[Rfam]
The family of this 52-nucleotide RNA sequence from Mesorhizobium sanjuanii is "Guanidine-II riboswitch aptamer (mini-ykkC)".
RNA sequence: CCGCGAGGACGACCUCGCGCCUUCCCCGAACAAUCCGCCCGGGACGACCCGC
Numbered sequence: 001c002c003g004c005g006a007g008g009a010c011g012a013c014c015u016c017g018c019g020c021c022u023u024c025c026c027c028g029a030a031c032a033a034u035c036c037g038c039c040c041g042g043g044a045c046g047a048c049c050c051g052c
Base pairs, nucleotide, nucleotide: 002019003018004017005016006015007014008013040051041050042049043048
The literature on the family includes a 2007 paper in Nucleic Acids Res by Weinberg et al., "Identification of 22 candidate structured RNAs in bacteria using the CMfinder comparative genomics pipeline". The family has 72 seed sequences and 1,589 matches in Rfam 15.1. It scores 39 bits against the family's covariance model.